[Rfam]
RNA sequence: UUGCAAUGUAGCAUGCCCGUUGAUGCUUAACUCUGAUUAGUAUUUGUUAUUUAAUUACUUUUGGGUAACGGGGUGUUACACCA
Numbered sequence: 001u002u003g004c005a006a007u008g009u010a011g012c013a014u015g016c017c018c019g020u021u022g023a024u025g026c027u028u029a030a031c032u033c034u035g036a037u038u039a040g041u042a043u044u045u046g047u048u049a050u051u052u053a054a055u056u057a058c059u060u061u062u063g064g065g066u067a068a069c070g071g072g073g074u075g076u077u078a079c080a081c082c083a
Stems, first nucleotide, its partner, number of pairs: 007080008016072006

A member of the RNA family "MIR2617 microRNA precursor family" from Medicago truncatula, 83 nucleotides long. Pairs were carried over by alignment from the consensus structure, which was predicted with RNAalifold. NCBI's taxonomy places the organism under Eukaryota, Embryophyta, fabids, Hologalegina, Medicago. A search with the family's covariance model found it, with a score of 64 bits.